[Rfam]
RNA: TPP riboswitch aptamer (THI element)
RNA sequence: UGUAACCACAAGGGGUGCCGAAUUUGUUGGCUGAGAUUGUGCACGUAAUGCACUGACUCUUUGAACCUGUAAGUUAACGCUUGCGUAGGGAUGUGGAUAGAAACCGAC
Numbered sequence: 001u002g003u004a005a006c007c008a009c010a011a012g013g014g015g016u017g018c019c020g021a022a023u024u025u026g027u028u029g030g031c032u033g034a035g036a037u038u039g040u041g042c043a044c045g046u047a048a049u050g051c052a053c054u055g056a057c058u059c060u061u062u063g064a065a066c067c068u069g070u071a072a073g074u075u076a077a078c079g080c081u082u083g084c085g086u087a088g089g090g091a092u093g094u095g096g097a098u099a100g101a102a103a104c105c106g107a108c
Base pairs, nucleotide, nucleotide: 006096007095008094009093010092011060012059013058014057017031018030019029020028021027039053040052041051042050066089067088068087069086070083071082072081073080